[Rfam]
RNA sequence: AAGAUCUCUGCGGGAGAGACCGGCCCUGCCCGAAAGGCAGCCCGGCGCCGAAGGAGCAACCGCCCCGGAAACUCUCAGGCAAAAGGACCGCAGAAGGAUG
Numbered sequence: 001a002a003g004a005u006c007u008c009u010g011c012g013g014g015a016g017a018g019a020c021c022g023g024c025c026c027u028g029c030c031c032g033a034a035a036g037g038c039a040g041c042c043c044g045g046c047g048c049c050g051a052a053g054g055a056g057c058a059a060c061c062g063c064c065c066c067g068g069a070a071a072c073u074c075u076c077a078g079g080c081a082a083a084a085g086g087a088c089c090g091c092a093g094a095a096g097g098a099u100g
Stems, first nucleotide, its partner, number of pairs: 007094007020045004047080003050076002054074003060068002
The family of this 100-nucleotide RNA from Tepidicaulis marinus is "Glycine riboswitch aptamer".
Rfam links the family to the GO term glycine biosynthetic process.